[Rfam]
RNA sequence: GCGAACAGGAUGUUCGCUGAUUUAAUCUUACGAUGUUUUAGACGUAAGUCUAAAACUCGAAAGCUAAAAAAUGUACAGGAUGUACAUUUUUUAGCUCCC
Numbered sequence: 001g002c003g004a005a006c007a008g009g010a011u012g013u014u015c016g017c018u019g020a021u022u023u024a025a026u027c028u029u030a031c032g033a034u035g036u037u038u039u040a041g042a043c044g045u046a047a048g049u050c051u052a053a054a055a056c057u058c059g060a061a062a063g064c065u066a067a068a069a070a071a072u073g074u075a076c077a078g079g080a081u082g083u084a085c086a087u088u089u090u091u092u093a094g095c096u097c098c099c
Stems, first nucleotide, its partner, number of pairs: 001017006031059003035056008063095014

Rfam assigns this 99-nucleotide RNA from Treponema denticola to the family "TD-2 RNA". The literature on the family includes a 2007 paper in Nucleic Acids Res by Weinberg et al., "Identification of 22 candidate structured RNAs in bacteria using the CMfinder comparative genomics pipeline". Lineage of the source: Bacteria > Spirochaetia > Treponematales > Treponema > Treponema denticola. The family's consensus secondary structure is taken from published work. It is one of the family's seed sequences. The family is grouped with related families in Rfam's "TD (Treponema denticola) motifs".